[Rfam]
RNA sequence: AGAGGUCACAAGUCGAAGGCCAUAGCAGAAGUGGCCAUGUCAGAUUCUAGUGAAUCUGCAGAUUUUGCU
Numbered sequence: 001a002g003a004g005g006u007c008a009c010a011a012g013u014c015g016a017a018g019g020c021c022a023u024a025g026c027a028g029a030a031g032u033g034g035c036c037a038u039g040u041c042a043g044a045u046u047c048u049a050g051u052g053a054a055u056c057u058g059c060a061g062a063u064u065u066u067g068c069u
Base pairs, nucleotide, nucleotide: 013037018036019035020034021033024069025068026067027066028065029064030063041058042057043056044055045054046053047052

Description:
A member of the RNA family "Mammalian CPEB3 ribozyme" from Crocodylus porosus, 69 nucleotides long. The family's consensus secondary structure is taken from published work. The organism belongs to Crocodylus, within Eukaryota. Rfam links the family to the GO term RNA nuclease activity.